[Rfam]
RNA sequence: GCGGGAGGAAGCUCACUGUAGAGGUCACAAACUGAGUGCGUAGUCACUCAACCAAUCACCUCGGGGAAGGUCUGAGACAAGAGCCAAUAGCUACCCUUGCAGGGUAUCAUCUGACACUGAUGAGCGAGCGCACAGAGAAUUGGGGCCUGAGCGUAGCACAUAUGCAGGAGAAGUUGGCAAUUGUAAAAUCUCGCAAUGUCGACGGAUGCAGCCUGCGCUGGCUUGGAAUCACUCGCGGCUAGCGUCUGAGUGCGAUGUGUGAGCUGGUCCACAUGACCAGAACCCAAUUCAGACUACUCUCCCCCCAC
Numbered sequence: 001g002c003g004g005g006a007g008g009a010a011g012c013u014c015a016c017u018g019u020a021g022a023g024g025u026c027a028c029a030a031a032c033u034g035a036g037u038g039c040g041u042a043g044u045c046a047c048u049c050a051a052c053c054a055a056u057c058a059c060c061u062c063g064g065g066g067a068a069g070g071u072c073u074g075a076g077a078c079a080a081g082a083g084c085c086a087a088u089a090g091c092u093a094c095c096c097u098u099g100c101a102g103g104g105u106a107u108c109a110u111c112u113g114a115c116a117c118u119g120a121u122g123a124g125c126g127a128g129c130g131c132a133c134a135g136a137g138a139a140u141u142g143g144g145g146c147c148u149g150a151g152c153g154u155a156g157c158a159c160a161u162a163u164g165c166a167g168g169a170g171a172a173g174u175u176g177g178c179a180a181u182u183g184u185a186a187a188a189u190c191u192c193g194c195a196a197u198g199u200c201g202a203c204g205g206a207u208g209c210a211g212c213c214u215g216c217g218c219u220g221g222c223u224u225g226g227a228a229u230c231a232c233u234c235g236c237g238g239c240u241a242g243c244g245u246c247u248g249a250g251u252g253c254g255a256u257g258u259g260u261g262a263g264c265u266g267g268u269c270c271a272c273a274u275g276a277c278c279a280g281a282a283c284c285c286a287a288u289u290c291a292g293a294c295u296a297c298u299c300u301c302c303c304c305c306c307a308c
Base pairs, nucleotide, nucleotide: 001308003306004305007302008301009300012263013262014261015260016259021062022061023060024059034049035048036047037046038045072292073291074290075289076288082240083239084238085237092106093105094104095103096102107123108122109121110120111119124236125235126234127233128232130230145222146221147220264280265279266278267277268276269275